[Rfam]
Source information:
The record is a 155-nucleotide sequence from Populus tomentosa, which matches "MIR480 microRNA precursor family" in Rfam. NCBI's taxonomy places the organism under Eukaryota, Viridiplantae, Streptophyta, Euphyllophyta, Populus. The base pairs follow the family's consensus structure, which was predicted with WAR. The family has 69 seed sequences and 3,070 matches in Rfam 15.1. Its family is annotated with miRNA-mediated post-transcriptional gene silencing and RISC complex in the Gene Ontology. It scores 80 bits against the family's covariance model. A reference for the family is Lu et al. (2005), "Novel and mechanical stress-responsive MicroRNAs in Populus trichocarpa that are absent from Arabidopsis", Plant Cell.
RNA sequence: UAAUUUGUAUAGGACAGAUUCUUAUUUAGUUAUGGUAGACCCAUACUUGAUUGCUCAUAAUCAACUGUUAUCGCAAGCUCGACUAUGUCAAGAUGUCUUGGCCAUUUUCAAGCAACGAAAGACCAAUUGGCAUCUUCUUCAGCUUUUGACAAUUU
Numbered sequence: 001u002a003a004u005u006u007g008u009a010u011a012g013g014a015c016a017g018a019u020u021c022u023u024a025u026u027u028a029g030u031u032a033u034g035g036u037a038g039a040c041c042c043a044u045a046c047u048u049g050a051u052u053g054c055u056c057a058u059a060a061u062c063a064a065c066u067g068u069u070a071u072c073g074c075a076a077g078c079u080c081g082a083c084u085a086u087g088u089c090a091a092g093a094u095g096u097c098u099u100g101g102c103c104a105u106u107u108u109c110a111a112g113c114a115a116c117g118a119a120a121g122a123c124c125a126a127u128u129g130g131c132a133u134c135u136u137c138u139u140c141a142g143c144u145u146u147u148g149a150c151a152a153u154u155u
Base pairs, nucleotide, nucleotide: 005152006151007150008148009147012144018138024133025132027129028128029127030126031125